[Rfam]
Source information
A member of the RNA family "SAH (S-adenosyl-L-homocysteine) riboswitch aptamer" from Candidatus Propionivibrio aalborgensis, 72 nucleotides long. Taxonomically the source falls in Propionivibrio (Bacteria, Pseudomonadota, Betaproteobacteria, Rhodocyclaceae). The base pairs follow the family's consensus structure, which is taken from published work.
RNA sequence: UUGUCCGAGGAGCGCUGCAAAACUGUCGCUUGACAGUUUCAGGCUCGGAACCUUAAACGGCGCUCAUCCAAC
Numbered sequence: 001u002u003g004u005c006c007g008a009g010g011a012g013c014g015c016u017g018c019a020a021a022a023c024u025g026u027c028g029c030u031u032g033a034c035a036g037u038u039u040c041a042g043g044c045u046c047g048g049a050a051c052c053u054u055a056a057a058c059g060g061c062g063c064u065c066a067u068c069c070a071a072c
Base pairs, nucleotide, nucleotide: 004049005048006047007046008045021038022037023036024035025034026033